Record summary
Rfam assigns this 100-nucleotide sequence from Alloalcanivorax marinus to the family "Guanidine-I riboswitch aptamer". From the family's description: This family represents a conserved RNA structure found upstream of the ykkC and yxkD genes in Bacillus subtilis and related genes in other bacteria. Rfam links the family to the GO term regulation of gene expression. It scores 93 bits against the family's covariance model. On this family, see Barrick et al., Proc Natl Acad Sci U S A 2004: "New RNA motifs suggest an expanded scope for riboswitches in bacterial genetic control".
[Rfam]
RNA sequence: AAAAUGGAUCGCUAGGGUUCCGGUGGGCCGCGCCCACGACUGGUCCGAGAGCGAUCGACCUUCUUGCAAGGUUACACGGCGGGACAAAAGCCCGGGAGGA
Numbered sequence: 001a002a003a004a005u006g007g008a009u010c011g012c013u014a015g016g017g018u019u020c021c022g023g024u025g026g027g028c029c030g031c032g033c034c035c036a037c038g039a040c041u042g043g044u045c046c047g048a049g050a051g052c053g054a055u056c057g058a059c060c061u062u063c064u065u066g067c068a069a070g071g072u073u074a075c076a077c078g079g080c081g082g083g084a085c086a087a088a089a090g091c092c093c094g095g096g097a098g099g100a
Base pairs, nucleotide, nucleotide: 007056008055009054010053011052012051015046016045020043021042022040023037024036025035026034027033028032057073058072059071060070061069062068075095077098081093082092083091